[Rfam]
RNA sequence: AUCAUAAACAAAUAAAGUAUCCAUAUAAUCCUAAUAAUGUGGUUUAGGAGUUUCUACAGGAAGCCGUAAAUUUCCCGUCUAUGGAUGAAUUCCUUUAAAGC
Numbered sequence: 001a002u003c004a005u006a007a008a009c010a011a012a013u014a015a016a017g018u019a020u021c022c023a024u025a026u027a028a029u030c031c032u033a034a035u036a037a038u039g040u041g042g043u044u045u046a047g048g049a050g051u052u053u054c055u056a057c058a059g060g061a062a063g064c065c066g067u068a069a070a071u072u073u074c075c076c077g078u079c080u081a082u083g084g085a086u087g088a089a090u091u092c093c094u095u096u097a098a099a100g101c
Stems, first nucleotide, its partner, number of pairs: 018087008029049006057077001059075005
Purine riboswitch aptamer: a 101-nucleotide sequence from Clostridium kluyveri. Riboswitches are metabolite binding domains within certain messenger RNAs that serve as precision sensors for their corresponding targets. The family's consensus secondary structure is taken from published work. The organism belongs to Clostridium kluyveri, within Bacteria.